[Rfam]
Alphacoronavirus 3'UTR: a 282-nucleotide RNA from Alphacoronavirus hipposideri.
A reference for the family is Madhugiri et al. (2016), "Coronavirus cis-Acting RNA Elements", Adv Virus Res.
About the family: The 3' UTR of alphacoronaviruses consists of two small hairpins (PK-SL2) which can form an alternate conformation (PK-SL1) where the loop region of the second hairpin interacts with the stem of the first hairpin. PK-SL2 has been confirmed in HCoV-229E and HCoV-NL63 by in vitro structure probing experiments.
Its family is annotated with viral RNA genome replication in the Gene Ontology.
Lineage of the source: Viruses > Riboviria > Orthocoronavirinae > Decacovirus > Alphacoronavirus CHB25.
RNA sequence: UUUCCAUAUUGCUUGGAAGUUCACACACACAAGCUUUUUGCUUAGUUAAUUGAAAUACGCACCCUUUCCUUUGUGAUUGAUUAGGUGCUACUCUUAUACAGAAUGGUAAGCCUGUUUAUAAGCUAGUAUAAGUAGAGUUUAUAAAUGUUGCUGUGCAUAGAUGAACAUACAUGUUACAAGAACCUCUAGAGUCAGAGUAAUCAAAGAUCCGCAUAGACGAGCCAACAAUGGAAGAGCUGUCAUAGAAUCUUGUAACCAUGUAUUAGUAAUUGUUAGUUGACA
Numbered sequence: 001u002u003u004c005c006a007u008a009u010u011g012c013u014u015g016g017a018a019g020u021u022c023a024c025a026c027a028c029a030c031a032a033g034c035u036u037u038u039u040g041c042u043u044a045g046u047u048a049a050u051u052g053a054a055a056u057a058c059g060c061a062c063c064c065u066u067u068c069c070u071u072u073g074u075g076a077u078u079g080a081u082u083a084g085g086u087g088c089u090a091c092u093c094u095u096a097u098a099c100a101g102a103a104u105g106g107u108a109a110g111c112c113u114g115u116u117u118a119u120a121a122g123c124u125a126g127u128a129u130a131a132g133u134a135g136a137g138u139u140u141a142u143a144a145a146u147g148u149u150g151c152u153g154u155g156c157a158u159a160g161a162u163g164a165a166c167a168u169a170c171a172u173g174u175u176a177c178a179a180g181a182a183c184c185u186c187u188a189g190a191g192u193c194a195g196a197g198u199a200a201u202c203a204a205a206g207a208u209c210c211g212c213a214u215a216g217a218c219g220a221g222c223c224a225a226c227a228a229u230g231g232a233a234g235a236g237c238u239g240u241c242a243u244a245g246a247a248u249c250u251u252g253u254a255a256c257c258a259u260g261u262a263u264u265a266g267u268a269a270u271u272g273u274u275a276g277u278u279g280a281c282a
Stems, first nucleotide, its partner, number of pairs: 093110005114146011154282002160271003167263005177252005185246004191241001193239003212221001222231002